Source information: A member of the RNA family "UnaL2 LINE 3' element" from Salmo trutta, 54 nucleotides long.
Nucleotides: 054
Stems, first nucleotide, its partner, number of pairs: 013043001014041003020036006
Number, partner (000 for none) and nucleotide at each position: 001000c002000a003000c004000c005000c006000a007000a008000a009000u010000g011000a012000c013043u014041g015040u016039a017000a018000g019000u020036c021035a022034c023033u024032u025031u026000g027000g028000a029000u030000a031025a032024a033023a034022g035021u036020g037000u038000c039016u040015a041014c042000u043013a044000a045000a046000u047000g048000g049000c050000a051000u052000a053000u054000a
About the family: The eel long interspersed element (LINE) UnaL2 and its partner short interspersed element (SINE) share a conserved 3' tail containing a stem-loop that is critical for their retrotransposition. Presumably, the first step of retrotransposition is the recognition of their 3' tails by UnaL2-encoded reverse transcriptase. Rfam 15.1 lists 493,311 matches to the family in 99 species. The organism belongs to Salmo, within Eukaryota.